This 92-nucleotide sequence from Mitsuaria sp. 7 belongs to the Rfam family "Selenocysteine transfer RNA". Pairs were carried over by alignment from the consensus structure, which is taken from published work. Rfam 15.1 lists 4,211 matches to the family in 3,344 species. The organism belongs to Roseateles, within Bacteria.
[Rfam]
RNA sequence: GGAGAGACAACGAUCCUGGUGGAUCGGCCGGACUUCAAAUCCGGUGGGUGAUGCCACGCAUCGCCGGGUGGGUUCGACUCCCAUGUCUCUCC
Dot-bracket structure: (((((((((.((((((....))))))((((((.......)))))).(((((.........)))))...((((.......)))))))))))))